A member of the RNA family "mir-2774 microRNA precursor family" from Bombyx mori, 70 nucleotides long.
On this family, see Liu et al., BMC Genomics 2010: "MicroRNAs of Bombyx mori identified by Solexa sequencing".
The organism belongs to Bombyx, within Eukaryota.
The match comes from Rfam's covariance-model search (69 bits).
Gene Ontology terms of the family: miRNA-mediated post-transcriptional gene silencing and RISC complex.
Pairs were carried over by alignment from the consensus structure, which was predicted with RNAalifold.
RNA sequence: ACACCAUUCGGACCGUCGGUCUAGCGAGCAAUAUCACGCGCUCGCUGGAAGAUAUUAUUUCCUUUGUCGU
Numbered sequence: 001a002c003a004c005c006a007u008u009c010g011g012a013c014c015g016u017c018g019g020u021c022u023a024g025c026g027a028g029c030a031a032u033a034u035c036a037c038g039c040g041c042u043c044g045c046u047g048g049a050a051g052a053u054a055u056u057a058u059u060u061c062c063u064u065u066g067u068c069g070u
Base pairs, nucleotide, nucleotide: 005066006065010061011060012059015053016052017051020049021048022047023046024045025044026043027042028041029040